[Rfam]
RNA sequence: GUUGCUCAUUCAUCUGUUUAUGAUUGCCACCCCACAGCGGGCAGAGCUCAUAAAAUCCGAAUGACGCACCAAACGGAGCCUGUCGUCCACCCAACCGAUAAUCGUAUGUUCUGCAUCGUUAUCAAGCAUCGGACGCAACGUUGAGUUAGGCUCCACCCAUUCUCGCGUACUGCUAUGGCGGUGCGUCAACGGCAGGCCAUCGCGCCUGCCGUUUUCUU
Numbered sequence: 001g002u003u004g005c006u007c008a009u010u011c012a013u014c015u016g017u018u019u020a021u022g023a024u025u026g027c028c029a030c031c032c033c034a035c036a037g038c039g040g041g042c043a044g045a046g047c048u049c050a051u052a053a054a055a056u057c058c059g060a061a062u063g064a065c066g067c068a069c070c071a072a073a074c075g076g077a078g079c080c081u082g083u084c085g086u087c088c089a090c091c092c093a094a095c096c097g098a099u100a101a102u103c104g105u106a107u108g109u110u111c112u113g114c115a116u117c118g119u120u121a122u123c124a125a126g127c128a129u130c131g132g133a134c135g136c137a138a139c140g141u142u143g144a145g146u147u148a149g150g151c152u153c154c155a156c157c158c159a160u161u162c163u164c165g166c167g168u169a170c171u172g173c174u175a176u177g178g179c180g181g182u183g184c185g186u187c188a189a190c191g192g193c194a195g196g197c198c199a200u201c202g203c204g205c206c207u208g209c210c211g212u213u214u215u216c217u218u
Base pairs, nucleotide, nucleotide: 003068004067005066006064007063008062009061013059015052016051024044026042027041028040075154076153077152078151079150080149081148085134086133087132088131097123098122099121100120101119102118165173166172188213189212190211191210192209193208194207195206196205197204

This 218-nucleotide RNA from Pantoea ananatis belongs to the Rfam family "GlmZ RNA activator of glmS mRNA". Rfam classes the family as a small RNA. The match comes from Rfam's covariance-model search (65 bits). This RNA was discovered in E. coli during a large scale screen. The sraJ gene was expressed in early logarithmic phase, but its level decreased with cell growth. Specific cleavage products of this RNA were found. Identified in Yersinia pseudotuberculosis as Ysr248/153/sR016.